Nucleotides: 076
Stems, first nucleotide, its partner, number of pairs: 012037002018031005040070004047066002049062003
Number, partner (000 for none) and nucleotide at each position: 001000g002000c003000a004000a005000u006000u007000a008000c009000u010000c011000g012037g013036c014000a015000a016000a017000c018031c019030c020029g021028u022027c023000g024000a025000a026000a027022g028021g029020c030019g031018g032000c033000g034000a035000c036013g037012c038000a039000a040070a041069g042068c043067u044000a045000c046000a047066g048065g049062g050061c051060c052000u053000u054000u055000c056000a057000u058000a059000u060051g061050g062049c063000a064000g065048c066047c067043a068042g069041c070040u071000g072000c073000a074000a075000c076000u